Notes:
Shown here is an 86-nucleotide RNA from Paenibacillus faecis, a member of the family "c-di-GMP-I riboswitch aptamer". The family's consensus secondary structure is taken from published work.
RNA sequence: UCACGAUAACGGCAAACUUGUCGAAAGGCAAGGACGCAAAGCUACAGGGCCUUCUUGACGUAAGUCAAUGGCAGCCAGCUACCGAA
Numbered sequence: 001u002c003a004c005g006a007u008a009a010c011g012g013c014a015a016a017c018u019u020g021u022c023g024a025a026a027g028g029c030a031a032g033g034a035c036g037c038a039a040a041g042c043u044a045c046a047g048g049g050c051c052u053u054c055u056u057g058a059c060g061u062a063a064g065u066c067a068a069u070g071g072c073a074g075c076c077a078g079c080u081a082c083c084g085a086a
Stems, first nucleotide, its partner, number of pairs: 012037002017032006040080004047076002049072003056067004